The family of this 103-nucleotide RNA from Glycine max is "MIR390 microRNA precursor family".
Pairs were carried over by alignment from the consensus structure, which was predicted with WAR.
Rfam links the family to the GO terms miRNA-mediated post-transcriptional gene silencing and RISC complex.
RNA sequence: CAGAAGAAUCUGUAAAGCUCAGGAGGGAUAGCGCCACAACACUCAUGAUUUUAUAUCAUAAUAUAUUUGGCGCUAUCUAUCCUGAGUUUCACGGGUUCUUCUU
Numbered sequence: 001c002a003g004a005a006g007a008a009u010c011u012g013u014a015a016a017g018c019u020c021a022g023g024a025g026g027g028a029u030a031g032c033g034c035c036a037c038a039a040c041a042c043u044c045a046u047g048a049u050u051u052u053a054u055a056u057c058a059u060a061a062u063a064u065a066u067u068u069g070g071c072g073c074u075a076u077c078u079a080u081c082c083u084g085a086g087u088u089u090c091a092c093g094g095g096u097u098c099u100u101c102u103u
Stems, first nucleotide, its partner, number of pairs: 010094001016088009026078010
A search with the family's covariance model found it, with a score of 101 bits.